The family of this 51-nucleotide RNA from Zemynaea arenosa is "nhaA-I RNA". Acidobacteria, Alphaproteobacteria, Betaproteobacteria and Gammaproteobacteria, Verrucomicrobia, cand. division NC10. The family's consensus secondary structure is taken from published work.
[Rfam]
RNA sequence: GGGUGACCGGUCACACGGCAGGUCAGGAUUCGCGCAGGUCGGGCCGCCGCG
Numbered sequence: 001g002g003g004u005g006a007c008c009g010g011u012c013a014c015a016c017g018g019c020a021g022g023u024c025a026g027g028a029u030u031c032g033c034g035c036a037g038g039u040c041g042g043g044c045c046g047c048c049g050c051g
Stems, first nucleotide, its partner, number of pairs: 005024004010019003033051003037048003